RNA sequence: UCGGCUCCGGUUCACGUUCGAUGCCAUCCGCGCGAGCGACCCGGCGCC
Numbered sequence: 001u002c003g004g005c006u007c008c009g010g011u012u013c014a015c016g017u018u019c020g021a022u023g024c025c026a027u028c029c030g031c032g033c034g035a036g037c038g039a040c041c042c043g044g045c046g047c048c
Base pairs, nucleotide, nucleotide: 003048004047005046007044008043009042010041015038016037017036018035019034020033022032023031
RNA: L31-Actinobacteria ribosomal protein leader